A member of the RNA family "Small nucleolar RNA SNORD82" from Astyanax mexicanus, 69 nucleotides long.
Lineage of the source: Eukaryota > Opisthokonta > Neopterygii > Acestrorhamphidae > Astyanax.
A search with the family's covariance model found it, with a score of 49 bits.
About the family: snoRNA U82 or Z25 is found in both humans and mice.
On this family, see Galardi et al., Mol Cell Biol 2002: "Purified box C/D snoRNPs are able to reproduce site-specific 2'-O-methylation of target RNA in vitro".
RNA sequence: UAAAGGAAUGAUGAUCAUUAAGGGACUUAAUACUGAUGUAUGAUGUCACUUUUGCAGUUUCUGACCUUA
Numbered sequence: 001u002a003a004a005g006g007a008a009u010g011a012u013g014a015u016c017a018u019u020a021a022g023g024g025a026c027u028u029a030a031u032a033c034u035g036a037u038g039u040a041u042g043a044u045g046u047c048a049c050u051u052u053u054g055c056a057g058u059u060u061c062u063g064a065c066c067u068u069a
Stems, first nucleotide, its partner, number of pairs: 003068004